[Rfam]
RNA: c-di-GMP-I riboswitch aptamer
Organism: Alicyclobacillus acidoterrestris
Nucleotides: 086
Stems, first nucleotide, its partner, number of pairs: 012038002017033004022029002041080004046076003049071003056065003
Number, partner (000 for none) and nucleotide at each position: 001000a002000g003000u004000g005000g006000a007000a008000a009000a010000g011000g012038g013037u014000a015000a016000a017033c018032c019031g020030u021000u022029c023028c024000u025000a026000a027000a028023g029022g030020a031019c032018g033017g034000g035000g036000c037013a038012c039000a040000a041080a042079g043078c044077c045000a046076u047075g048074g049071g050070g051069c052000u053000a054000c055000a056065g057064c058063g059000u060000u061000u062000a063058c064057g065056c066000c067000a068000u069051g070050c071049c072000u073000g074048c075047c076046a077044g078043g079042u080041u081000g082000c083000c084000g085000u086000u